RNA sequence: GCCCCCGUAGCCCAACCGGGAGAGGCGGGCCCCCUAAAAGGGCCAUUGGUGUCGGUUCGAAUCCGACCGGGGGCA
Numbered sequence: 001g002c003c004c005c006c007g008u009a010g011c012c013c014a015a016c017c018g019g020g021a022g023a024g025g026c027g028g029g030c031c032c033c034c035u036a037a038a039a040g041g042g043c044c045a046u047u048g049g050u051g052u053c054g055g056u057u058c059g060a061a062u063c064c065g066a067c068c069g070g071g072g073g074c075a
Stems, first nucleotide, its partner, number of pairs: 001074007010026003028044005051067005
Rfam assigns this 75-nucleotide RNA sequence from Thermomonospora curvata to the family "tRNA". The family's consensus secondary structure is taken from published work. NCBI's taxonomy places the organism under Bacteria, Streptosporangiales, Thermomonosporaceae, Thermomonospora, Thermomonospora curvata. By type it is a transfer RNA.